[Rfam]
RNA: mir-130 microRNA precursor family
Organism: Coregonus sp. 'balchen'
RNA sequence: AAUAGCACCCUAUUCCCUUUACAGUGCACUGCUGUUUACCAGAGCUCUAUUAGUGCACUGUCAAGGGAAUAGGGUGUCGUUU
Number, nucleotide and partner (000 for none) at each position: 001a082002a081003u000004a000005g077006c076007a075008c074009c073010c072011u000012a070013u069014u068015c067016c066017c065018u064019u063020u000021a000022c060023a059024g058025u057026g056027c055028a054029c053030u052031g000032c000033u000034g000035u000036u000037u000038a000039c000040c000041a000042g000043a000044g000045c000046u000047c000048u000049a000050u000051u000052a030053g029054u028055g027056c026057a025058c024059u023060g022061u000062c000063a019064a018065g017066g016067g015068a014069a013070u012071a000072g010073g009074g008075u007076g006077u005078c000079g000080u000081u002082u001